[Rfam]
RNA: Small nucleolar RNA R64/Z200 family
RNA sequence: UUCUUGCCGUGAUGAAUCAUGAAACAAUUCACAUGUCAGACUUCAGAGAUUUUGUAUUAAAUCCAUGAGAAGGAAAUUUCUUGUUUCCUGAGCAGAAG
Numbered sequence: 001u002u003c004u005u006g007c008c009g010u011g012a013u014g015a016a017u018c019a020u021g022a023a024a025c026a027a028u029u030c031a032c033a034u035g036u037c038a039g040a041c042u043u044c045a046g047a048g049a050u051u052u053u054g055u056a057u058u059a060a061a062u063c064c065a066u067g068a069g070a071a072g073g074a075a076a077u078u079u080c081u082u083g084u085u086u087c088c089u090g091a092g093c094a095g096a097a098g
Stems, first nucleotide, its partner, number of pairs: 001098002004095004048063004